[Rfam]
RNA: Group II catalytic intron D1-D4-1
RNA sequence: GACGUUUGCGAACGGUCGAAAAAGGUUUGUCGUAAGAAGUCAGCCGAGGCCAUAGUAGCUAUGAUAUUACAUGUAGUGAAGGGC
Numbered sequence: 001g002a003c004g005u006u007u008g009c010g011a012a013c014g015g016u017c018g019a020a021a022a023a024g025g026u027u028u029g030u031c032g033u034a035a036g037a038a039g040u041c042a043g044c045c046g047a048g049g050c051c052a053u054a055g056u057a058g059c060u061a062u063g064a065u066a067u068u069a070c071a072u073g074u075a076g077u078g079a080a081g082g083g084c
Stems, first nucleotide, its partner, number of pairs: 001027002005022003009018003040047002049084003058077006